mir-1306 microRNA precursor family: a 72-nucleotide RNA from Callorhinchus milii. Taxonomically the source falls in Callorhinchus (Eukaryota, Metazoa, Gnathostomata, Chondrichthyes). Rfam links the family to the GO terms miRNA-mediated post-transcriptional gene silencing and RISC complex. It scores 85 bits against the family's covariance model. For this family Rfam cites "Application of massively parallel sequencing to microRNA profiling and discovery in human embryonic stem cells" (Morin et al., Genome Res, 2008).
[Rfam]
RNA sequence: GCCUCCACCACCUCCCCUGCAAACGUCCAGUGAGGCCGAGGUUAUGGACGUUGGCUGCGGUGGUGAUGGACU
Numbered sequence: 001g002c003c004u005c006c007a008c009c010a011c012c013u014c015c016c017c018u019g020c021a022a023a024c025g026u027c028c029a030g031u032g033a034g035g036c037c038g039a040g041g042u043u044a045u046g047g048a049c050g051u052u053g054g055c056u057g058c059g060g061u062g063g064u065g066a067u068g069g070a071c072u
Base pairs, nucleotide, nucleotide: 009065010064011063012062014060015059019055020054022052023051024050025049026048027047028046029045033042